[Rfam]
RNA sequence: AACGCAGACUGGCUUAUCGCGUCCGAUUUAUCGGGCGAGGAAAGUCCGGGCAGCACAGAGCACCUUACUUCCUAACGGGAAGGCGGACGGCUGGGAACGGCCGUUCGACAGACAGGGCAACAGAAAACAUACCGCCAUUUUUUUAAUGGCGAAUGAGCGAAUGAGUGAAUGAGUGAAUAGCCAUCCGGCGUAAUAAAAGUAUUCCGUCAUUUCUAUCAUUCCGAAUAAGGCGUAGUCAUUCGGAACGAUAAAAAAACUUGAACUACAGUGUAUUAAAUAAGCUUGCGCCAGCUAUUCACUCAUUCGCUCAUUCACUCAUUCACUCAUUGAACUUGGUAAGGGCGAACCGGUGGGGUAAGAGCCCACCGCCCGGCGGGUGACCGACGGGGCACGGCAACCCUUAGGGGCUGAAAGACCAAAUAAGCGUCGGACGCGCGGCUGCUCGUCGCCAGCGGUCUGCAAGGACCAACACCGACGCGGGUAGGUCGAACGAGGUGGUCGGUGACGGCCAUCCCAGAUAAAUGAUAAGCCAGCCAGCAAUGGUGGACAGAACCCGGCUUAUAGGUCUGAGUUGACU
Numbered sequence: 001a002a003c004g005c006a007g008a009c010u011g012g013c014u015u016a017u018c019g020c021g022u023c024c025g026a027u028u029u030a031u032c033g034g035g036c037g038a039g040g041a042a043a044g045u046c047c048g049g050g051c052a053g054c055a056c057a058g059a060g061c062a063c064c065u066u067a068c069u070u071c072c073u074a075a076c077g078g079g080a081a082g083g084c085g086g087a088c089g090g091c092u093g094g095g096a097a098c099g100g101c102c103g104u105u106c107g108a109c110a111g112a113c114a115g116g117g118c119a120a121c122a123g124a125a126a127a128c129a130u131a132c133c134g135c136c137a138u139u140u141u142u143u144u145a146a147u148g149g150c151g152a153a154u155g156a157g158c159g160a161a162u163g164a165g166u167g168a169a170u171g172a173g174u175g176a177a178u179a180g181c182c183a184u185c186c187g188g189c190g191u192a193a194u195a196a197a198a199g200u201a202u203u204c205c206g207u208c209a210u211u212u213c214u215a216u217c218a219u220u221c222c223g224a225a226u227a228a229g230g231c232g233u234a235g236u237c238a239u240u241c242g243g244a245a246c247g248a249u250a251a252a253a254a255a256a257c258u259u260g261a262a263c264u265a266c267a268g269u270g271u272a273u274u275a276a277a278u279a280a281g282c283u284u285g286c287g288c289c290a291g292c293u294a295u296u297c298a299c300u301c302a303u304u305c306g307c308u309c310a311u312u313c314a315c316u317c318a319u320u321c322a323c324u325c326a327u328u329g330a331a332c333u334u335g336g337u338a339a340g341g342g343c344g345a346a347c348c349g350g351u352g353g354g355g356u357a358a359g360a361g362c363c364c365a366c367c368g369c370c371c372g373g374c375g376g377g378u379g380a381c382c383g384a385c386g387g388g389g390c391a392c393g394g395c396a397a398c399c400c401u402u403a404g405g406g407g408c409u410g411a412a413a414g415a416c417c418a419a420a421u422a423a424g425c426g427u428c429g430g431a432c433g434c435g436c437g438g439c440u441g442c443u444c445g446u447c448g449c450c451a452g453c454g455g456u457c458u459g460c461a462a463g464g465a466c467c468a469a470c471a472c473c474g475a476c477g478c479g480g481g482u483a484g485g486u487c488g489a490a491c492g493a494g495g496u497g498g499u500c501g502g503u504g505a506c507g508g509c510c511a512u513c514c515c516a517g518a519u520a521a522a523u524g525a526u527a528a529g530c531c532a533g534c535c536a537g538c539a540a541u542g543g544u545g546g547a548c549a550g551a552a553c554c555c556g557g558c559u560u561a562u563a564g565g566u567c568u569g570a571g572u573u574g575a576c577u
Base pairs, nucleotide, nucleotide: 001573002572003571005569006568007567008566009565010564011562012530013529014528015527016526017525018524020037021036022035023034024033025032026031042560043559044558046557047556048555049554050553051410052409053408054407060460061459063406064405065404066403067402068082069081070080071079072078083109084107085106086105087104088103089102090101091100092099093098110401111400115399116398117395118394132341133340134337135336136335137334140331141330142329349367350366351365352364353363354362368390369388370387371386372385374383375382376381414487415486416485417484424478425477426476427475428474429473454467455466456465457464494513495512496511497510498509499508500507501506
The record is a 577-nucleotide sequence from Spirosoma sp. KUDC1026, which matches "Bacterial RNase P class A" in Rfam. From the family's description: Ribonuclease P (RNase P) is a ubiquitous endoribonuclease, found in archaea, bacteria and eukarya as well as chloroplasts and mitochondria. The match comes from Rfam's covariance-model search (249 bits).